[Rfam]
Nucleotides: 233
Base pairs, nucleotide, nucleotide: 011035012034013033014032018030019029020028022201024199025198038086039085042083043082044081045080046078047077048073049072050071051070052069053068054067055066056065057064058063123227124225126224127223128222129221130220131219144218145217146216147215148214149213150176151175152174155170156169157168158167181212182211183210184209185208186207187206188205189204191202
Number, partner (000 for none) and nucleotide at each position: 001000g002000a003000a004000u005000u006000c007000c008000c009000a010000c011035c012034g013033a014032g015000c016000a017000a018030g019029a020028a021000c022201u023000a024199g025198c026000c027000a028020u029019u030018c031000a032014c033013u034012c035011g036000u037000a038086g039085c040000g041000a042083g043082u044081c045080u046078u047077g048073g049072a050071g051070g052069a053068u054067g055066u056065g057064g058063a059000g060000u061000a062000a063058u064057u065056c066055a067054u068053g069052u070051c071050u072049u073048u074000a075000a076000g077047c078046g079000u080045a081044g082043a083042c084000a085039g086038u087000u088000a089000g090000a091000u092000a093000a094000u095000g096000g097000g098000c099000c100000g101000u102000a103000a104000g105000c106000c107000a108000a109000u110000u111000g112000g113000u114000u115000g116000a117000a118000g119000g120000g121000a122000u123227u124225g125000a126224g127223c128222u129221c130220c131219g132000a133000a134000a135000u136000a137000c138000c139000a140000a141000g142000u143000c144218a145217a146216g147215a148214g149213g150176g151175c152174u153000g154000a155170u156169g157168u158167a159000a160000u161000u162000g163000u164000c165000u166000g167158u168157a169156c170155a171000g172000a173000a174152a175151g176150c177000a178000a179000u180000a181212c182211u183210u184209c185208u186207a187206c188205u189204a190000a191202c192000g193000u194000a195000a196000u197000g198025g199024c200000a201022a202191g203000a204189u205188a206187g207186u208185a209184g210183a211182a212181g213149c214148c215147u216146c217145u218144u219131c220130g221129g222128a223127g224126u225124c226000g227123a228000u229000g230000a231000c232000c233000u
Rfam assigns this 233-nucleotide RNA from Anaerobacillus isosaccharinicus to the family "Group II catalytic intron D1-D4-6". From the family's description: Group II introns are found in rRNA, tRNA and mRNA of organelles in fungi, plants and protists, and also in mRNA in bacteria. Gene Ontology term of the family: Group II intron splicing. The organism belongs to Anaerobacillus, within Bacteria. It scores 165 bits against the family's covariance model.